[Rfam]
Annotation
A member of the RNA family "Bacterial small signal recognition particle RNA" from Carnobacterium maltaromaticum, 87 nucleotides long. The literature on the family includes a 2002 paper in Nucleic Acids Res by Regalia et al., "Prediction of signal recognition particle RNA genes".
RNA sequence: GCCGUAUGGCAAUGGUGAGUCUACGAAUCGUGUCAGAUCCGGAAGGAAGCAGCACUAAGUUGAUUUCGCCAUGUGCUGUAUGUACAU
Numbered sequence: 001g002c003c004g005u006a007u008g009g010c011a012a013u014g015g016u017g018a019g020u021c022u023a024c025g026a027a028u029c030g031u032g033u034c035a036g037a038u039c040c041g042g043a044a045g046g047a048a049g050c051a052g053c054a055c056u057a058a059g060u061u062g063a064u065u066u067c068g069c070c071a072u073g074u075g076c077u078g079u080a081u082g083u084a085c086a087u
Stems, first nucleotide, its partner, number of pairs: 004081006010073001012072006019064003023060002030055004038047003
Clan: SRP clan.
About the family: The signal recognition particle (SRP) is a universally conserved ribonucleoprotein involved in the co-translational targeting of proteins to membranes.
Rfam classes the family as a non-coding RNA gene.